[Rfam]
RNA sequence: GGAUCAACGAGCCUUGAAUCAGCAGAAUUCAUUAAUGCACCCCAGCAGAGGGACAAGGCCAACGGAUUC
Numbered sequence: 001g002g003a004u005c006a007a008c009g010a011g012c013c014u015u016g017a018a019u020c021a022g023c024a025g026a027a028u029u030c031a032u033u034a035a036u037g038c039a040c041c042c043c044a045g046c047a048g049a050g051g052g053a054c055a056a057g058g059c060c061a062a063c064g065g066a067u068u069c
Stems, first nucleotide, its partner, number of pairs: 001069005009060001011059003015031005040052003
Background: The record is a 69-nucleotide sequence from Caenorhabditis briggsae, which matches "bZIP non canonical Hac1/Xbp1 intron" in Rfam. It is one of the family's seed sequences. bZIP intron RNA is a non-canonical intron that was first reported in HAC1 gene in yeast and XBP1 gene in Metazoa. The family's consensus secondary structure was predicted with RNAfold. By type it is a small RNA.